[Rfam]
RNA sequence: CGAGCGGUGUACGGCCAGGUGCCCGGCUGGUCGGUCAGCACCUGCUCGCCGAGAUGGUCCCCGUCGGCGAGCGUGCCCAGCGCGGUCUGGUCCCCGUACUUGCCCGCGCCGGUUUUGUCCACGCGACCGUGCGCGAUCAGCACGAGCUGGUCGGCGGCACGUCCCGACUCCACCACGAGAUCCCCGGCCGACAGGUCGUGCUGGGUGAACCGGUUCGCCAGGGUGCUGAGCACCUCGCUGUCGUCGAACCCGCGCAGCGCGGCCACCUCGCCCAGCUCGGCGGGGAUCACCCGUACCUGGGCGCCGGUACGGACGAACUCGAUGCAUCCGUCGCCGACGGUGUAGGUGAGUCGGCGGUUGACCCGGUAGGUACCGCCCUGGAUGUCCUCCCAGGGCAGGGCGCGCAGUAGCCAGCGCGGGCUGAUGCCCUGCAUCUGGGGCGCGGUCUUGGUUGUGGUGGCCAGGUUCCGCGCCGCGGCGGUGCCCAGGCUCUGCGCGGACUGCCG
Numbered sequence: 001c002g003a004g005c006g007g008u009g010u011a012c013g014g015c016c017a018g019g020u021g022c023c024c025g026g027c028u029g030g031u032c033g034g035u036c037a038g039c040a041c042c043u044g045c046u047c048g049c050c051g052a053g054a055u056g057g058u059c060c061c062c063g064u065c066g067g068c069g070a071g072c073g074u075g076c077c078c079a080g081c082g083c084g085g086u087c088u089g090g091u092c093c094c095c096g097u098a099c100u101u102g103c104c105c106g107c108g109c110c111g112g113u114u115u116u117g118u119c120c121a122c123g124c125g126a127c128c129g130u131g132c133g134c135g136a137u138c139a140g141c142a143c144g145a146g147c148u149g150g151u152c153g154g155c156g157g158c159a160c161g162u163c164c165c166g167a168c169u170c171c172a173c174c175a176c177g178a179g180a181u182c183c184c185c186g187g188c189c190g191a192c193a194g195g196u197c198g199u200g201c202u203g204g205g206u207g208a209a210c211c212g213g214u215u216c217g218c219c220a221g222g223g224u225g226c227u228g229a230g231c232a233c234c235u236c237g238c239u240g241u242c243g244u245c246g247a248a249c250c251c252g253c254g255c256a257g258c259g260c261g262g263c264c265a266c267c268u269c270g271c272c273c274a275g276c277u278c279g280g281c282g283g284g285g286a287u288c289a290c291c292c293g294u295a296c297c298u299g300g301g302c303g304c305c306g307g308u309a310c311g312g313a314c315g316a317a318c319u320c321g322a323u324g325c326a327u328c329c330g331u332c333g334c335c336g337a338c339g340g341u342g343u344a345g346g347u348g349a350g351u352c353g354g355c356g357g358u359u360g361a362c363c364c365g366g367u368a369g370g371u372a373c374c375g376c377c378c379u380g381g382a383u384g385u386c387c388u389c390c391c392a393g394g395g396c397a398g399g400g401c402g403c404g405c406a407g408u409a410g411c412c413a414g415c416g417c418g419g420g421c422u423g424a425u426g427c428c429c430u431g432c433a434u435c436u437g438g439g440g441c442g443c444g445g446u447c448u449u450g451g452u453u454g455u456g457g458u459g460g461c462c463a464g465g466u467u468c469c470g471c472g473c474c475g476c477g478g479c480g481g482u483g484c485c486c487a488g489g490c491u492c493u494g495c496g497c498g499g500a501c502u503g504c505c506g
Stems, first nucleotide, its partner, number of pairs: 006390002009387001011385002015381002018328002021325002024321003029318001031316002035313002038310001040308003047303004052298001055232001058229002063226002065111004075103001077102001079100002082097004117224004122217002127212001129210002131206002134203002140197001150192002153188001155186001156183002160179001235295001240290002243287003249283002253279002256277003259271003329342004353377005361371003391431007400422001403418003407415001437476001439474002442471004447465006477505002480502003484499002488495001
Annotation
Shown here is a 506-nucleotide sequence from Kutzneria viridogrisea, a member of the family "Saccharopolyspora sRNA 350". The match comes from Rfam's covariance-model search (149 bits). The family has 2 seed sequences and 1,170 matches in Rfam 15.1. The base pairs follow the family's consensus structure, which was predicted with RNAfold. The family's RNA type in Rfam is antisense RNA. Its family is annotated with regulation of secondary metabolite biosynthetic process in the Gene Ontology.